[Rfam]
RNA sequence: GGGGACCUUCGGGGCCCUUCAACUGCCGGGUCGACACGACCCGCAAAGCAACGGAAGACACAAA
Numbered sequence: 001g002g003g004g005a006c007c008u009u010c011g012g013g014g015c016c017c018u019u020c021a022a023c024u025g026c027c028g029g030g031u032c033g034a035c036a037c038g039a040c041c042c043g044c045a046a047a048g049c050a051a052c053g054g055a056a057g058a059c060a061c062a063a064a
Base pairs, nucleotide, nucleotide: 001018002017003016004015006014007013008012025044027043028042029041030040031039032038033037